[Rfam]
RNA sequence: UUGCAGUCAGUUAAGCCGACCGGCCCGCCUGCUGUGGGGGCCCGGUGUGCAAUGGCUGCGCACAGUACCUCCCCUGGUUGUGUAUGUGCUCUGUGCCUUGUAUGGAGCGCUUUAAGGGACCGCGGGGACAUGG
Numbered sequence: 001u002u003g004c005a006g007u008c009a010g011u012u013a014a015g016c017c018g019a020c021c022g023g024c025c026c027g028c029c030u031g032c033u034g035u036g037g038g039g040g041c042c043c044g045g046u047g048u049g050c051a052a053u054g055g056c057u058g059c060g061c062a063c064a065g066u067a068c069c070u071c072c073c074c075u076g077g078u079u080g081u082g083u084a085u086g087u088g089c090u091c092u093g094u095g096c097c098u099u100g101u102a103u104g105g106a107g108c109g110c111u112u113u114a115a116g117g118g119a120c121c122g123c124g125g126g127g128a129c130a131u132g133g
Base pairs, nucleotide, nucleotide: 002051003050004049005048019046020045021044022043025040026039028037076121077120078119087109088108089107090106091105092104

Shown here is a 133-nucleotide RNA from Pelusios castaneus, a member of the family "Small nucleolar RNA SNORA70". Rfam describes the family as follows. snoRNA U70 seems to be exclusive to mammals and is a member of the H/ACA class of snoRNA which contain H (ANANNA) and ACA box motifs. H/ACA box snoRNAs are involved in the conversion of uridines to pseudouridines (5-ribosyluracil) a constituent of structural RNAs (transfer, ribosomal, small nuclear, and small nucleolar). Gene Ontology terms of the family: nucleolus and RNA processing. A search with the family's covariance model found it, with a score of 114 bits. NCBI's taxonomy places the organism under Eukaryota, Bilateria, Dipnotetrapodomorpha, Tetrapoda, Pelusios.